[Rfam]
RNA sequence: CUUUAACAAUCCGGAACAAGCUGAAAUUUGAAUCCUCAGCCAAUCGUGAGUAAUACACUGACACGAAUUUGGCUGAGCGAGUCUCUCAAUUUUUCGCGACUUAGAAAGUGACUCGACAGAGACACCUUCGG
Numbered sequence: 001c002u003u004u005a006a007c008a009a010u011c012c013g014g015a016a017c018a019a020g021c022u023g024a025a026a027u028u029u030g031a032a033u034c035c036u037c038a039g040c041c042a043a044u045c046g047u048g049a050g051u052a053a054u055a056c057a058c059u060g061a062c063a064c065g066a067a068u069u070u071g072g073c074u075g076a077g078c079g080a081g082u083c084u085c086u087c088a089a090u091u092u093u094u095c096g097c098g099a100c101u102u103a104g105a106a107a108g109u110g111a112c113u114c115g116a117c118a119g120a121g122a123c124a125c126c127u128u129c130g131g
Base pairs, nucleotide, nucleotide: 020097021096023095024094025093026092029089034079036076037075038074039073040072041071042070102130104129105128108125109124110123
RNA: Salmonella enterica Typhi npcRNA 44